[Rfam]
RNA sequence: AUUUAAAAAUAAUAUUGUGCCCAUAUAAAUCUCAGGAUAUGGCUGAGAAGUUUCUACCAAGUGACCGUAAAUCACUUGACUAUGGAUGAAAGUGUACCUAGG
Numbered sequence: 001a002u003u004u005a006a007a008a009a010u011a012a013u014a015u016u017g018u019g020c021c022c023a024u025a026u027a028a029a030u031c032u033c034a035g036g037a038u039a040u041g042g043c044u045g046a047g048a049a050g051u052u053u054c055u056a057c058c059a060a061g062u063g064a065c066c067g068u069a070a071a072u073c074a075c076u077u078g079a080c081u082a083u084g085g086a087u088g089a090a091a092g093u094g095u096a097c098c099u100a101g102g
Stems, first nucleotide, its partner, number of pairs: 018088002021085005030048006058078007

Purine riboswitch aptamer: a 102-nucleotide RNA from Proteiniborus sp. DW1. Lineage of the source: Bacteria > Bacillota > Clostridia > Eubacteriales > Proteiniborus. It scores 87 bits against the family's covariance model.